[Rfam]
RNA sequence: UCUGGAUAAACUUGUAUCCAUCCAAGAGAAUGGAGUAAGUCACUUUACGGAAAUUAAAAUAAGUAAAACAUUUUAGGGUUGACAAAGACUUACUAUAAGUGAAAUUCUGAAAUAUCAGGAUAACCGUAUGUCCUUUAGCACUGUUUGUGUUAUAAAAAUAAUCUUAAAUAACUUUGAUUAAGUUUUUGAGUUACGGUUCU
Numbered sequence: 001u002c003u004g005g006a007u008a009a010a011c012u013u014g015u016a017u018c019c020a021u022c023c024a025a026g027a028g029a030a031u032g033g034a035g036u037a038a039g040u041c042a043c044u045u046u047a048c049g050g051a052a053a054u055u056a057a058a059a060u061a062a063g064u065a066a067a068a069c070a071u072u073u074u075a076g077g078g079u080u081g082a083c084a085a086a087g088a089c090u091u092a093c094u095a096u097a098a099g100u101g102a103a104a105u106u107c108u109g110a111a112a113u114a115u116c117a118g119g120a121u122a123a124c125c126g127u128a129u130g131u132c133c134u135u136u137a138g139c140a141c142u143g144u145u146u147g148u149g150u151u152a153u154a155a156a157a158a159u160a161a162u163c164u165u166a167a168a169u170a171a172c173u174u175u176g177a178u179u180a181a182g183u184u185u186u187u188g189a190g191u192u193a194c195g196g197u198u199c200u
Stems, first nucleotide, its partner, number of pairs: 001051004006046001008044001010040006017034005022028001072111008088100002117134005123197006129158001136152005163190006170183001
Rfam assigns this 200-nucleotide RNA sequence to the family "IS605-orfB-I RNA". The family's RNA type in Rfam is small RNA. The base pairs follow the family's consensus structure, which is taken from published work. It is one of the family's seed sequences.